[Rfam]
RNA sequence: AGCGGUGAUCUGCCGAGUCCGUGCAGUCAGGAGGCACGGAGCCGGGGACCCAGCCGGCCUUCACGCGAAGGCCCCGGGGUGAAUCGGCGCCAGAGCGCGCCGUAGGGCGACUUCCCCGCCCGAACCCGUCAGCUAACCCGGUAGGCGCGAGCGGAAGAUCCU
Numbered sequence: 001a002g003c004g005g006u007g008a009u010c011u012g013c014c015g016a017g018u019c020c021g022u023g024c025a026g027u028c029a030g031g032a033g034g035c036a037c038g039g040a041g042c043c044g045g046g047g048a049c050c051c052a053g054c055c056g057g058c059c060u061u062c063a064c065g066c067g068a069a070g071g072c073c074c075c076g077g078g079g080u081g082a083a084u085c086g087g088c089g090c091c092a093g094a095g096c097g098c099g100c101c102g103u104a105g106g107g108c109g110a111c112u113u114c115c116c117c118g119c120c121c122g123a124a125c126c127c128g129u130c131a132g133c134u135a136a137c138c139c140g141g142u143a144g145g146c147g148c149g150a151g152c153g154g155a156a157g158a159u160c161c162u
Base pairs, nucleotide, nucleotide: 011147012146013145014144018040019039020038021037022036023035024034041142042141043140044139045138046137051076077127078126079125085102086101087100088099105121106120107119108118
Rfam assigns this 162-nucleotide RNA from Microbispora oryzae to the family "c-di-AMP riboswitch aptamer (ydaO/yuaA leader)". Rfam 15.1 lists 7,607 matches to the family in 2,262 species. Rfam links the family to the GO terms regulation of gene expression and cyclic-di-AMP binding.